[Rfam]
RNA sequence: CCAAUCUGAAACUUGCGCGCCAGACGCCUGUGGUGUUUCGCUCGGUGUUGGGUAUCAGCUGGAUGUGGUUCUUCGGAGCGGUGUUCCUGAGCCUGUUCCCCGCCUUUGCGAAGGAUGUGUUG
Number, nucleotide and partner (000 for none) at each position: 001c000002c000003a000004a000005u000006c000007u000008g000009a000010a049011a048012c047013u000014u045015g000016c000017g042018c000019g041020c040021c000022a038023g037024a036025c035026g034027c033028c000029u000030g000031u000032g000033g027034u026035g025036u024037u023038u022039c000040g020041c019042u017043c000044g000045g014046u000047g012048u011049u010050g000051g121052g120053u119054a118055u117056c000057a000058g000059c113060u112061g000062g000063a105064u000065g103066u000067g099068g098069u000070u000071c095072u000073u000074c000075g000076g000077a000078g088079c000080g087081g086082u000083g000084u000085u000086c081087c080088u078089g000090a000091g000092c000093c000094u000095g071096u000097u000098c068099c067100c000101c000102g000103c065104c000105u063106u000107u000108g000109c000110g000111a000112a060113g059114g000115a000116u000117g055118u054119g053120u052121u051122g000
RNA: Burkholderia RNA 11